[Rfam]
RNA sequence: GAUAAGAAAGGUGAGAAUCCUUUCCGCCGUAAGCCUAAGGUUUCCUGAGGAAGGUUCGUCCGCUCAGGGUUAGUCGGGUCCUAACGCGAGGCCGAAAGGCGUAGCGGAUGGAUAUCUGGUUAAUAUUCCAGAACUACCUAAAAAACGUUAUCACGAUGGGGAGACGCAGGAAGCUAUGCGAGCCUACGAUUGGAAGUGUAGGUUCAGCGCUGUAGAGAGAUCUGCCAGGCAAAUCCGGUGGGUCACUAUCUCGAGGGCGCAUGGCGAUGUCCGUAAGGACAGCAAAGUCGCAGAUGCUACGCUGCCGAGAAAAUCCUCUAAGGAGUUUUUUGGGUACCCGUACCGCAAACCGACACAGGUAGGCGAGGAGAAAAUCCUCAGGCGCG
Numbered sequence: 001g002a003u004a005a006g007a008a009a010g011g012u013g014a015g016a017a018u019c020c021u022u023u024c025c026g027c028c029g030u031a032a033g034c035c036u037a038a039g040g041u042u043u044c045c046u047g048a049g050g051a052a053g054g055u056u057c058g059u060c061c062g063c064u065c066a067g068g069g070u071u072a073g074u075c076g077g078g079u080c081c082u083a084a085c086g087c088g089a090g091g092c093c094g095a096a097a098g099g100c101g102u103a104g105c106g107g108a109u110g111g112a113u114a115u116c117u118g119g120u121u122a123a124u125a126u127u128c129c130a131g132a133a134c135u136a137c138c139u140a141a142a143a144a145a146c147g148u149u150a151u152c153a154c155g156a157u158g159g160g161g162a163g164a165c166g167c168a169g170g171a172a173g174c175u176a177u178g179c180g181a182g183c184c185u186a187c188g189a190u191u192g193g194a195a196g197u198g199u200a201g202g203u204u205c206a207g208c209g210c211u212g213u214a215g216a217g218a219g220a221u222c223u224g225c226c227a228g229g230c231a232a233a234u235c236c237g238g239u240g241g242g243u244c245a246c247u248a249u250c251u252c253g254a255g256g257g258c259g260c261a262u263g264g265c266g267a268u269g270u271c272c273g274u275a276a277g278g279a280c281a282g283c284a285a286a287g288u289c290g291c292a293g294a295u296g297c298u299a300c301g302c303u304g305c306c307g308a309g310a311a312a313a314u315c316c317u318c319u320a321a322g323g324a325g326u327u328u329u330u331u332g333g334g335u336a337c338c339c340g341u342a343c344c345g346c347a348a349a350c351c352g353a354c355a356c357a358g359g360u361a362g363g364c365g366a367g368g369a370g371a372a373a374a375u376c377c378u379c380a381g382g383c384g385c386g
Base pairs, nucleotide, nucleotide: 006024007023008022009021010020011019025384026383027382028381033364034363035362036361039344040343044068045067046066047065048064049063053061054060075340076339077338078337080111081110085106086105087104089102091100092099093098115132116131117130118129119128135336136335137334138333139332140331141330142329143328144327145326154322158318159317160316161315162314166305167304168303169302172298173297174296177292178291179290180289181288182203183202184201185200186199187198204264205263208259209258210257211256215252216251217250220243221242222241223240224239225238226237228236229235266283268281269280270279271278272277350359351358366378367377368376369375
The record is a 386-nucleotide part of an RNA from uncultured bacterium 70, which matches "Bacterial large subunit ribosomal RNA" in Rfam. Pairs were carried over by alignment from the consensus structure, which is taken from published work.